[Rfam]
RNA sequence: AGCACAAUUUAUACGGACCUUCCAUGGUUAAUAUUCCCCUGCCAGUUUGUCCGCCAGUGUUGUGCGAG
Numbered sequence: 001a002g003c004a005c006a007a008u009u010u011a012u013a014c015g016g017a018c019c020u021u022c023c024a025u026g027g028u029u030a031a032u033a034u035u036c037c038c039c040u041g042c043c044a045g046u047u048u049g050u051c052c053g054c055c056a057g058u059g060u061u062g063u064g065c066g067a068g
Base pairs, nucleotide, nucleotide: 002065003064004063005062006061007060008059015052016051017050018049022045026043027042028041

The family of this 68-nucleotide sequence from Trypanosoma congolense is "Trypanosomatid snoRNA TB9Cs3H1". Rfam 15.1 lists 34 matches to the family in 18 species. The family's consensus secondary structure was predicted with WAR.